[Rfam]
RNA sequence: AAAACCUCAUCUUCGAUCUAUGCCAUCCGGGCGUUGAUCAGUGCUUCCAGCACGGGCAUUCACCCAGAUGAGGAGAGAGU
Numbered sequence: 001a002a003a004a005c006c007u008c009a010u011c012u013u014c015g016a017u018c019u020a021u022g023c024c025a026u027c028c029g030g031g032c033g034u035u036g037a038u039c040a041g042u043g044c045u046u047c048c049a050g051c052a053c054g055g056g057c058a059u060u061c062a063c064c065c066a067g068a069u070g071a072g073g074a075g076a077g078a079g080u
Stems, first nucleotide, its partner, number of pairs: 005073008016038003020034005041053005054065003
The family of this 80-nucleotide RNA sequence is "RAGATH-10 RNA". Rfam's curators put it in the seed alignment. By type it is a small RNA. The literature on the family includes a 2015 paper in Nat Chem Biol by Weinberg et al., "New classes of self-cleaving ribozymes revealed by comparative genomics analysis".